[Rfam]
Nucleotides: 074
Stems, first nucleotide, its partner, number of pairs: 001074004005068002008065002
Number, partner (000 for none) and nucleotide at each position: 001074u002073g003072g004071u005068c006067a007000a008065u009064a010000a011000u012000g013000a014000u015000c016000a017000u018000u019000u020000c021000a022000u023000a024000u025000u026000g027000c028000c029000u030000g031000g032000a033000a034000g035000a036000g037000c038000g039000g040000u041000g042000a043000u044000g045000a046000c047000u048000g049000c050000a051000a052000g053000u054000u055000c056000a057000c058000u059000c060000a061000u062000g063000a064009u065008g066000c067006u068005g069000a070000g071004g072003c073002c074001a

Record summary: The record is a 74-nucleotide RNA sequence from Carlito syrichta, which matches "Small nucleolar RNA SNORD115" in Rfam. The family's RNA type in Rfam is C/D-box small nucleolar RNA. NCBI's taxonomy places the organism under Eukaryota, Deuterostomia, Euteleostomi, Mammalia, Carlito. A search with the family's covariance model found it, with a score of 48 bits. A reference for the family is Cavaille et al. (2000), "Identification of brain-specific and imprinted small nucleolar RNA genes exhibiting an unusual genomic organization", Proc Natl Acad Sci U S A. Rfam links the family to the GO terms nucleolus and RNA processing. Rfam 15.1 lists 3,387 matches to the family in 131 species.